The record is a 122-nucleotide sequence from Vibrio vulnificus, which matches "Phenylalanine leader peptide" in Rfam. The base pairs follow the family's consensus structure, which was predicted with CMfinder. The literature on the family includes a 1978 paper in Proc Natl Acad Sci U S A by Zurawski et al., "Nucleotide sequence of the leader region of the phenylalanine operon of Escherichia coli". Rfam 15.1 lists 379 matches to the family in 290 species.
[Rfam]
RNA sequence: GCAAAUCCACUCUCUGUUUAGUUUUGACUUCUUUUUUCUUCGAUAGCGGAGGGGCUAACUCGUUUGUGAAAGAAAAGUCAAAAACAAACAGAAAGCCUCCCACAUCGGGGGGCUUUUUUAUU
Numbered sequence: 001g002c003a004a005a006u007c008c009a010c011u012c013u014c015u016g017u018u019u020a021g022u023u024u025u026g027a028c029u030u031c032u033u034u035u036u037u038c039u040u041c042g043a044u045a046g047c048g049g050a051g052g053g054g055c056u057a058a059c060u061c062g063u064u065u066g067u068g069a070a071a072g073a074a075a076a077g078u079c080a081a082a083a084a085c086a087a088a089c090a091g092a093a094a095g096c097c098u099c100c101c102a103c104a105u106c107g108g109g110g111g112g113c114u115u116u117u118u119u120a121u122u
Base pairs, nucleotide, nucleotide: 016089017088018087019086022083023082024081025080026079027078028077029076030075032073033072034071036069039050040049041048042047051061052060053059092116093115094114095113096112097111098110099109100108101107

Its family is annotated with cellular amino acid metabolic process in the Gene Ontology. NCBI's taxonomy places the organism under Bacteria, Pseudomonadati, Gammaproteobacteria, Vibrionaceae, Vibrio vulnificus.